Rfam assigns this 341-nucleotide RNA sequence from Berryella intestinalis to the family "Bacterial RNase P class A". Its family is annotated with tRNA processing, dimeric ribonuclease P complex and ribonuclease P activity in the Gene Ontology.
Nucleotides: 341
Stems, first nucleotide, its partner, number of pairs: 001337010012305007020032005037324003041321005046209004053241004058205005063077005078092001079090004093200002098198002100194003117137002120134006149167006169189001170187007214261003223253006232247004270287007
Number, partner (000 for none) and nucleotide at each position: 001337c002336g003335a004334g005333u006332g007331g008330g009329u010328c011000a012305g013304a014303c015302g016301g017300u018299c019000g020032c021031a022030u023029g024028c025000a026000u027000c028024g029023c030022a031021u032020g033000a034000g035000g036000a037324a038323a039322g040000u041321c042320c043319g044318g045317g046209c047208u048207c049206c050000c051000a052000a053241g054240g055239g056238c057000a058205a059204g060203g061202u062201g063077c064076c065075a066074g067073c068000u069000a070000a071000c072000a073067g074066c075065u076064g077063g078092g079090c080089g081088g082087g083000g084000c085000g086000a087082c088081c089080c090079g091000a092078c093200g094199g095000a096000a097000a098198g099197u100194g101193c102192c103000a104000c105000a106000g107000a108000a109000a110000a111000g112000a113000a114000a115000a116000c117137u118136c119000c120134c121133g122132c123131c124130g125129u126000u127000u128000u129125g130124c131123g132122g133121c134120g135000a136118g137117a138000c139000a140000a141000g142000c143000u144000g145000a146000a147000a148000c149167g150166g151165u152164g153163c154162g155000g156000u157000a158000a159000a160000a161000g162154c163153g164152c165151a166150c167149c168000a169189g170187c171186g172185c173184g174183u175182c176181g177000g178000u179000a180000a181176c182175g183174g184173c185172g186171c187170g188000g189169c190000u191000u192102g193101g194100c195000a196000a197099a198098c199094c200093c201062c202061a203060c204059c205058u206049g207048g208047a209046g210000c211000a212000a213000a214261c215260g216259c217000a218000a219000a220000u221000a222000g223253g224252a225251a226250c227249g228248c229000g230000a231000u232247a233246c234245g235244g236000c237000c238056g239055c240054c241053c242000u243000u244235c245234c246233g247232u248228g249227c250226g251225u252224u253223c254000g255000g256000g257000u258000u259216g260215c261214g262000c263000g264000c265000u266000c267000g268000a269000u270287a271286c272285g273284u274283g275282c276281g277000g278000u279000g280000a281276c282275g283274c284273a285272c286271g287270u288000c289000c290000u291000a292000g293000a294000u295000a296000a297000a298000u299018g300017g301016c302015c303014g304013u305012c306000c307000a308000a309000c310000g311000a312000c313000a314000g315000a316000a317045c318044c319043c320042g321041g322039c323038u324037u325000a326000c327000c328010g329009a330008c331007c332006c333005a334004c335003u336002c337001g338000a339000u340000c341000c
The organism belongs to Berryella, within Bacteria. A reference for the family is Frank and Pace (1998), "Ribonuclease P: unity and diversity in a tRNA processing ribozyme", Annu Rev Biochem. It is annotated as a ribozyme.